[Rfam]
RNA: IMES-5 RNA
RNA sequence: CAUUUUUCAGAAAGAAUUGGACCUCGAGACCCAGAUCAGGAAGAAAAUGGACAGAAGAAGAAGGGUGAAAAAGUUAAUCUAGUAAUUAGCAACUUGUGAGCUGAACGGGUAUUGGCCACACAGUGAUGAACCCGCACUGGGCCCUUCAACUUCG
Numbered sequence: 001c002a003u004u005u006u007u008c009a010g011a012a013a014g015a016a017u018u019g020g021a022c023c024u025c026g027a028g029a030c031c032c033a034g035a036u037c038a039g040g041a042a043g044a045a046a047a048u049g050g051a052c053a054g055a056a057g058a059a060g061a062a063g064g065g066u067g068a069a070a071a072a073g074u075u076a077a078u079c080u081a082g083u084a085a086u087u088a089g090c091a092a093c094u095u096g097u098g099a100g101c102u103g104a105a106c107g108g109g110u111a112u113u114g115g116c117c118a119c120a121c122a123g124u125g126a127u128g129a130a131c132c133c134g135c136a137c138u139g140g141g142c143c144c145u146u147c148a149a150c151u152u153c154g
Stems, first nucleotide, its partner, number of pairs: 001049007015036001017034004054153004060147006074089005095120004100116001101114001103112001121139005